[Rfam]
The family of this 168-nucleotide part of an RNA from Escovopsis weberi is "Ascomycota telomerase RNA".
RNA sequence: UACCUCACUCCGAGAUCGGUUCUCACUCUCGGUGCUUCCCUCGUUUUGUCCACGACCAGACGAGUUGAGAACACGGUUUUUUAUGGAUGUCUUUUGUCCGUGUGUCGAUGCCCUCCUUAAAGCCUCUCGUCGAGAGUUUCGGAGAGGAUACAAAAACAAGUCCUCGCU
Number, nucleotide and partner (000 for none) at each position: 001u000002a000003c000004c000005u000006c034007a033008c032009u000010c000011c031012g030013a029014g028015a000016u000017c000018g027019g026020u025021u000022c000023u000024c000025a020026c019027u018028c014029u013030c012031g011032g008033u007034g006035c000036u000037u000038c000039c067040c064041u063042c062043g061044u060045u000046u000047u000048g056049u055050c054051c000052a000053c000054g050055a049056c048057c000058a000059g000060a044061c043062g042063a041064g040065u000066u000067g039068a000069g000070a000071a000072c000073a000074c000075g000076g000077u000078u000079u000080u000081u000082u000083a000084u000085g000086g162087a161088u160089g157090u156091c000092u155093u154094u153095u152096g151097u150098c000099c000100g000101u000102g000103u000104g000105u000106c000107g000108a000109u000110g000111c147112c146113c144114u143115c142116c141117u000118u000119a000120a139121a138122g137123c136124c000125u000126c134127u133128c132129g000130u000131c000132g128133a127134g126135a000136g123137u122138u121139u120140c000141g116142g115143a114144g113145a000146g112147g111148a000149u000150a097151c096152a095153a094154a093155a092156a090157c089158a000159a000160g088161u087162c086163c000164u000165c000166g000167c000168u000

Its family is annotated with telomere maintenance via telomerase, telomerase catalytic core complex and telomerase activity in the Gene Ontology.
Rfam 15.1 lists 475 matches to the family in 456 species.
The literature on the family includes a 2013 paper in Nucleic Acids Res by Qi et al., "The common ancestral core of vertebrate and fungal telomerase RNAs".
Taxonomically the source falls in Escovopsis (Eukaryota, Opisthokonta, saccharomyceta, Pezizomycotina).
Its Rfam clan is "Telomerase clan".
Rfam classes the family as a non-coding RNA gene.